[Rfam]
RNA sequence: UUCUUCCACAACGACCUGUGCCAUCUCGUCCCGUCCGCCCCCUCGGGGCGUGUUCGGUUGAUGAUCUGGCAGUUCGUCCGAUCUAUGGAGCCAUCAAUCCCCCAUGGUGUCAAUCUUCCGGUCGACAGGUCGCAGAGCAAGUAGGCACGUUUCUUUCUACCUGAGUUCACCUUCGGGUUUGAGCUCGGUGGAGGCGUGCUAGGGCGACUGAUUCCUACUCCCUUUGCUGAUGGCCGUCGGCUCGUGAAGUUGGGGAAUAACCCAGUCUAGCCUACAUAC
Numbered sequence: 001u002u003c004u005u006c007c008a009c010a011a012c013g014a015c016c017u018g019u020g021c022c023a024u025c026u027c028g029u030c031c032c033g034u035c036c037g038c039c040c041c042c043u044c045g046g047g048g049c050g051u052g053u054u055c056g057g058u059u060g061a062u063g064a065u066c067u068g069g070c071a072g073u074u075c076g077u078c079c080g081a082u083c084u085a086u087g088g089a090g091c092c093a094u095c096a097a098u099c100c101c102c103c104a105u106g107g108u109g110u111c112a113a114u115c116u117u118c119c120g121g122u123c124g125a126c127a128g129g130u131c132g133c134a135g136a137g138c139a140a141g142u143a144g145g146c147a148c149g150u151u152u153c154u155u156u157c158u159a160c161c162u163g164a165g166u167u168c169a170c171c172u173u174c175g176g177g178u179u180u181g182a183g184c185u186c187g188g189u190g191g192a193g194g195c196g197u198g199c200u201a202g203g204g205c206g207a208c209u210g211a212u213u214c215c216u217a218c219u220c221c222c223u224u225u226g227c228u229g230a231u232g233g234c235c236g237u238c239g240g241c242u243c244g245u246g247a248a249g250u251u252g253g254g255g256a257a258u259a260a261c262c263c264a265g266u267c268u269a270g271c272c273u274a275c276a277u278a279c
Stems, first nucleotide, its partner, number of pairs: 012132008020070004027063004031057003035052001036050002038047003079124005086112003090108003145199003158190004163186006170177002203272003206267005219256005226250003232242004
The record is a 279-nucleotide RNA sequence from Lojkania enalia, which matches "A. fumigatus sRNA Afu_309" in Rfam. Taxonomically the source falls in Lojkania (Eukaryota, Ascomycota, dothideomyceta, Pleosporomycetidae). Rfam classes the family as a small RNA. The match comes from Rfam's covariance-model search (154 bits).